The record is a 222-nucleotide RNA sequence, which matches "RT-2 RNA" in Rfam. The base pairs follow the family's consensus structure, which is taken from published work. It is annotated as a small RNA.
RNA sequence: CGGGGUCACAUGGAGUAACCGAUAGGUGAAAGACGACCCUCGCAAAAGGAGAGAUACUUCCCUGGGUGAAAAUCCCUAAAACUGCCCUUUGACGACCUUACACGGACGCUGCUUGCAUGGCGGGGUACUCGCGCUAUCCUCGUUUCCUGUGUCGGGGCAAAGUAGUUUAGAUGCGCACCUACAAGACAACUAUGCGGAGGGCGAACACUUUUUAUGACAAGC
Numbered sequence: 001c002g003g004g005g006u007c008a009c010a011u012g013g014a015g016u017a018a019c020c021g022a023u024a025g026g027u028g029a030a031a032g033a034c035g036a037c038c039c040u041c042g043c044a045a046a047a048g049g050a051g052a053g054a055u056a057c058u059u060c061c062c063u064g065g066g067u068g069a070a071a072a073u074c075c076c077u078a079a080a081a082c083u084g085c086c087c088u089u090u091g092a093c094g095a096c097c098u099u100a101c102a103c104g105g106a107c108g109c110u111g112c113u114u115g116c117a118u119g120g121c122g123g124g125g126u127a128c129u130c131g132c133g134c135u136a137u138c139c140u141c142g143u144u145u146c147c148u149g150u151g152u153c154g155g156g157g158c159a160a161a162g163u164a165g166u167u168u169a170g171a172u173g174c175g176c177a178c179c180u181a182c183a184a185g186a187c188a189a190c191u192a193u194g195c196g197g198a199g200g201g202c203g204a205a206c207a208c209u210u211u212u213u214a215u216g217a218c219a220a221g222c
Base pairs, nucleotide, nucleotide: 004038005037006036007035019026020025065077066076068074084202085201086200087199088198089197090196091195093194094158096156097155098154100152101151102150103149108116109115119144120143121142122141123140124139125138162193163192164191165190166189168188169180170179